[Rfam]
RNA sequence: GAUACGCAUGGCGGGUGCCUCUGCCUCAGCGAUAACAUAGCUUCUCCGAACGAGAGAAAUAAUGUUGUUGCUGGGGUAAGGAGCUGAGAUUACACCGUCAGAACUUGAUCUGGAUAAUACCAGCGCAAGGACAUGCUUCUCCCAUCAC
Numbered sequence: 001g002a003u004a005c006g007c008a009u010g011g012c013g014g015g016u017g018c019c020u021c022u023g024c025c026u027c028a029g030c031g032a033u034a035a036c037a038u039a040g041c042u043u044c045u046c047c048g049a050a051c052g053a054g055a056g057a058a059a060u061a062a063u064g065u066u067g068u069u070g071c072u073g074g075g076g077u078a079a080g081g082a083g084c085u086g087a088g089a090u091u092a093c094a095c096c097g098u099c100a101g102a103a104c105u106u107g108a109u110c111u112g113g114a115u116a117a118u119a120c121c122a123g124c125g126c127a128a129g130g131a132c133a134u135g136c137u138u139c140u141c142c143c144a145u146c147a148c
Stems, first nucleotide, its partner, number of pairs: 006136005011098004016092001017084002020081002104129004110123004

Annotation:
Shown here is a 148-nucleotide RNA sequence, a member of the family "TPP riboswitch aptamer (THI element)". The base pairs follow the family's consensus structure, which is taken from published work.